mir-2807 microRNA precursor family: an 84-nucleotide RNA sequence from Bombyx mori. The organism belongs to Bombyx, within Eukaryota. It scores 60 bits against the family's covariance model.

RNA sequence: UUAUCUGAAACUUGUAUGUAGUUGGAACAGCGCCCCUAGCGGCAAACGUAAGCAACCGUUCCAACUCUAUACAAAUUUGAGUUA
Numbered sequence: 001u002u003a004u005c006u007g008a009a010a011c012u013u014g015u016a017u018g019u020a021g022u023u024g025g026a027a028c029a030g031c032g033c034c035c036c037u038a039g040c041g042g043c044a045a046a047c048g049u050a051a052g053c054a055a056c057c058g059u060u061c062c063a064a065c066u067c068u069a070u071a072c073a074a075a076u077u078u079g080a081g082u083u084a
Stems, first nucleotide, its partner, number of pairs: 008078003012074005018068001020066009034052001039047001